This 45-nucleotide RNA sequence from Flavobacterium subsaxonicum belongs to the Rfam family "Acido-Lenti-1 RNA". The family's RNA type in Rfam is small RNA.

RNA sequence: CGUAGGGCGAUGCCCUACGCUAAUUUAUAUCGCCCCUUCAGGGCU
Numbered sequence: 001c002g003u004a005g006g007g008c009g010a011u012g013c014c015c016u017a018c019g020c021u022a023a024u025u026u027a028u029a030u031c032g033c034c035c036c037u038u039c040a041g042g043g044c045u
Base pairs, nucleotide, nucleotide: 001019002018003017004016005015006014007013008012032044033043034042035041